[Rfam]
RNA sequence: CUGCCACUGUUGCUAAUAUGCAACUCUGUUGAGUGCGAACUGGAAUUGCACUUUAGCAAUGGUGACUG
Dot-bracket structure: ....((((((((((((..(((((.((((............)))).)))))..))))))))))))....
The family of this 68-nucleotide RNA from Chinchilla lanigera is "mir-367 microRNA precursor family". On this family, see Mineno et al., Nucleic Acids Res 2006: "The expression profile of microRNAs in mouse embryos". It scores 80 bits against the family's covariance model. Rfam links the family to the GO terms miRNA-mediated post-transcriptional gene silencing and RISC complex. The base pairs follow the family's consensus structure, which was predicted with RNAalifold.